Rfam assigns this 86-nucleotide RNA sequence from Triticum urartu to the family "mir-395 microRNA precursor family".
It scores 68 bits against the family's covariance model.
Lineage of the source: Eukaryota > Streptophytina > Magnoliopsida > Triticeae > Triticum.
Rfam's curators write: mir-395 was identified in both Arabidopsis thaliana and Oryza sativa computationally and was later experimentally verified. mir-395 is thought to target mRNAs coding for ATP sulphurylases.
Its family is annotated with miRNA-mediated post-transcriptional gene silencing and RISC complex in the Gene Ontology.
A reference for the family is Jones-Rhoades and Bartel (2004), "Computational Identification of Plant MicroRNAs and Their Targets, Including a Stress-Induced miRNA", Mol Cell.
RNA sequence: GUAUUACUAGGAGUUCCCUUCAAACACUUUACAAAACACCUUUUUGAGAGCUUAUGUGAAGUGUUUGCGGGAACUCUCAGUAUAAU
Numbered sequence: 001g002u003a004u005u006a007c008u009a010g011g012a013g014u015u016c017c018c019u020u021c022a023a024a025c026a027c028u029u030u031a032c033a034a035a036a037c038a039c040c041u042u043u044u045u046g047a048g049a050g051c052u053u054a055u056g057u058g059a060a061g062u063g064u065u066u067g068c069g070g071g072a073a074c075u076c077u078c079a080g081u082a083u084a085a086u
Stems, first nucleotide, its partner, number of pairs: 005082004011076008020067001022066012035053002